[Rfam]
RNA sequence: UGAAAUAUGGGCCUUCUCUUCCUCGUUCUUCCCGGAGUCAGGAAAAGCUGGGUUGAGAGGGCAAAAAAAAAAAAAA
Numbered sequence: 001u002g003a004a005a006u007a008u009g010g011g012c013c014u015u016c017u018c019u020u021c022c023u024c025g026u027u028c029u030u031c032c033c034g035g036a037g038u039c040a041g042g043a044a045a046a047g048c049u050g051g052g053u054u055g056a057g058a059g060g061g062c063a064a065a066a067a068a069a070a071a072a073a074a075a076a
Stems, first nucleotide, its partner, number of pairs: 014059005021052003025048001029044004034039001
Notes:
The family of this 76-nucleotide RNA sequence from Sapajus apella is "mir-320 microRNA precursor family". Lineage of the source: Eukaryota > Euteleostomi > Tetrapoda > Mammalia > Sapajus. Gene Ontology terms of the family: long-term synaptic potentiation, positive regulation of stem cell proliferation and negative regulation of gene expression. A reference for the family is Berezikov et al. (2006), "Many novel mammalian microRNA candidates identified by extensive cloning and RAKE analysis", Genome Res.